[Rfam]
RNA sequence: AUGGGAAUAAAUCUUUCUAGUAGUAUUUUUUGUCUAACUCUACUAUAGCAGGAUUUAUUCCUUUUU
Numbered sequence: 001a002u003g004g005g006a007a008u009a010a011a012u013c014u015u016u017c018u019a020g021u022a023g024u025a026u027u028u029u030u031u032g033u034c035u036a037a038c039u040c041u042a043c044u045a046u047a048g049c050a051g052g053a054u055u056u057a058u059u060c061c062u063u064u065u066u
Stems, first nucleotide, its partner, number of pairs: 003062011018045004022039003
The record is a 66-nucleotide RNA from Streptococcus danieliae, which matches "S. pyogenes antisense RNA 392987" in Rfam. Lineage of the source: Bacteria > Bacilli > Lactobacillales > Streptococcaceae > Streptococcus. Pairs were carried over by alignment from the consensus structure, which was predicted with RNAalifold.